[Rfam]
RNA: Betaproteobacteria toxic small RNA
RNA sequence: UGUCUCCUCCACCCUCCCAAGGAUGGAUUAACCCGCUCCCCGUCAAGGCGAGCGGGUUUUUUUU
Numbered sequence: 001u002g003u004c005u006c007c008u009c010c011a012c013c014c015u016c017c018c019a020a021g022g023a024u025g026g027a028u029u030a031a032c033c034c035g036c037u038c039c040c041c042g043u044c045a046a047g048g049c050g051a052g053c054g055g056g057u058u059u060u061u062u063u064u
Stems, first nucleotide, its partner, number of pairs: 008027004013022003031057008